[Rfam]
RNA sequence: GAAUAGUUCCGGUAGGUAAGGCUACUACAGGGAUAUGGACUGCUGCCGCAAAAUGAUGGAGACAUCAUGCGAUGGUUUGAACAGGUUACAUCGAAACCAAGGUGUAGCAUAACGCAGUUUCACCGCCCUGCAGAGCUAAAGCUCGAAACGGUUGCAUUUUUUU
Numbered sequence: 001g002a003a004u005a006g007u008u009c010c011g012g013u014a015g016g017u018a019a020g021g022c023u024a025c026u027a028c029a030g031g032g033a034u035a036u037g038g039a040c041u042g043c044u045g046c047c048g049c050a051a052a053a054u055g056a057u058g059g060a061g062a063c064a065u066c067a068u069g070c071g072a073u074g075g076u077u078u079g080a081a082c083a084g085g086u087u088a089c090a091u092c093g094a095a096a097c098c099a100a101g102g103u104g105u106a107g108c109a110u111a112a113c114g115c116a117g118u119u120u121c122a123c124c125g126c127c128c129u130g131c132a133g134a135g136c137u138a139a140a141g142c143u144c145g146a147a148a149c150g151g152u153u154g155c156a157u158u159u160u161u162u163u
Base pairs, nucleotide, nucleotide: 005159006158008156010154011149013100015143016142017141020137021136022135025133026132028130029129030128031127032126039118040117041116042115043114045076046075047074048073054067055066057064058063085108086107087106090103091102092101